[Rfam]
RNA sequence: GGUAGUAGCAAAUACUCAAAUGAGAACUUUGAGGACUGAAGUGGGGAAAGGUUCCAUGUGAACAGCAGUUGGACAUGGGUUAGUCGAUCCUAAGACAUAGGGUAGUUCCGUUUGAAAGCGCGCCCUAGUGCGCCGUUUGUCGAAAGGGAAGCCGGUUAAUAUUCCGGCACCUGGAUGUGGAUUCUCCACGGCAACGUAACUGAACGCGGAGACGUCGGCAGGAGUCCUGGGAAGAGUUCUCUUUUCUUCUUGACGGCCUAUCACCCUGAAAUCGGUUUGUCCGGAGCUAGGGUUUCAUGGCCGGCAGAGCCCCGCACCUUUGCGGGGUCCGGUGCGCUCCUGACGACCCUUGAAAAUCCGCGGGAAGGAAUAGUUUUCACGCCAGGUCGUACUCAUAACCGCAGCAGGUCUCCAAGGUGAAAAGCCUCUAGUUGA
Numbered sequence: 001g002g003u004a005g006u007a008g009c010a011a012a013u014a015c016u017c018a019a020a021u022g023a024g025a026a027c028u029u030u031g032a033g034g035a036c037u038g039a040a041g042u043g044g045g046g047a048a049a050g051g052u053u054c055c056a057u058g059u060g061a062a063c064a065g066c067a068g069u070u071g072g073a074c075a076u077g078g079g080u081u082a083g084u085c086g087a088u089c090c091u092a093a094g095a096c097a098u099a100g101g102g103u104a105g106u107u108c109c110g111u112u113u114g115a116a117a118g119c120g121c122g123c124c125c126u127a128g129u130g131c132g133c134c135g136u137u138u139g140u141c142g143a144a145a146g147g148g149a150a151g152c153c154g155g156u157u158a159a160u161a162u163u164c165c166g167g168c169a170c171c172u173g174g175a176u177g178u179g180g181a182u183u184c185u186c187c188a189c190g191g192c193a194a195c196g197u198a199a200c201u202g203a204a205c206g207c208g209g210a211g212a213c214g215u216c217g218g219c220a221g222g223a224g225u226c227c228u229g230g231g232a233a234g235a236g237u238u239c240u241c242u243u244u245u246c247u248u249c250u251u252g253a254c255g256g257c258c259u260a261u262c263a264c265c266c267u268g269a270a271a272u273c274g275g276u277u278u279g280u281c282c283g284g285a286g287c288u289a290g291g292g293u294u295u296c297a298u299g300g301c302c303g304g305c306a307g308a309g310c311c312c313c314g315c316a317c318c319u320u321u322g323c324g325g326g327g328u329c330c331g332g333u334g335c336g337c338u339c340c341u342g343a344c345g346a347c348c349c350u351u352g353a354a355a356a357u358c359c360g361c362g363g364g365a366a367g368g369a370a371u372a373g374u375u376u377u378c379a380c381g382c383c384a385g386g387u388c389g390u391a392c393u394c395a396u397a398a399c400c401g402c403a404g405c406a407g408g409u410c411u412c413c414a415a416g417g418u419g420a421a422a423a424g425c426c427u428c429u430a431g432u433u434g435a
Stems, first nucleotide, its partner, number of pairs: 015033006034433004043413004049393002054078006063071002085389003089147002094141002097111002100109003119132003151168005171385004176381005181375001188197003205362006214347004219342007227332003230250006254303005263293006272284004310327007399408002415427004